Small nucleolar RNA SNORA30/SNORA37 family: a 136-nucleotide RNA sequence.
A reference for the family is Huttenhofer et al. (2001), "RNomics: an experimental approach that identifies 201 candidates for novel, small, non-messenger RNAs in mouse", EMBO J.
About the family: The members of this family belong to the H/ACA class of snoRNAs that guide the sites of modification of uridines to pseudouridines. This family includes human ACA30 (SNORA30), ACA37 (SNORA37) and the mouse homolog MBI-26. Both ACA37 and ACA30 are predicted to guide the pseudouridylation of residue U4643 of 28S rRNA.
Rfam's curators put it in the seed alignment.
Rfam classes the family as an H/ACA-box small nucleolar RNA.
Its family is annotated with RNA processing and nucleolus in the Gene Ontology.
The family has 11 seed sequences and 407 matches in Rfam 15.1.

RNA sequence: UAAGCACUUUUAACAGGUCGUGGUCUCAGUGCAGUAGGCCAUGAUUUGGUAGCUGGUGCUGAUAUGAAAGCUCUCUUUGAAGAAAAUCCAGCGGCUCUUCGUAUGGCUGUUUGGAUUAUCAGGGAGAGACACACAG
Number, nucleotide and partner (000 for none) at each position: 001u000002a000003a060004g059005c058006a057007c056008u055009u000010u000011u000012a000013a000014c048015a047016g046017g000018u044019c043020g042021u041022g000023g000024u038025c037026u036027c000028a000029g000030u000031g000032c000033a000034g000035u000036a026037g025038g024039c000040c000041a021042u020043g019044a018045u000046u016047u015048g014049g000050u000051a000052g000053c000054u000055g008056g007057u006058g005059c004060u003061g000062a000063u000064a000065u000066g000067a000068a000069a000070g130071c000072u128073c126074u125075c124076u123077u000078u121079g120080a000081a119082g000083a000084a000085a000086a000087u115088c114089c113090a112091g111092c109093g108094g107095c106096u000097c000098u000099u000100c000101g000102u000103a000104u000105g000106g095107c094108u093109g092110u000111u091112u090113g089114g088115a087116u000117u000118a000119u081120c079121a078122g000123g076124g075125a074126g073127a000128g072129a000130c070131a000132c000133a000134c000135a000136g000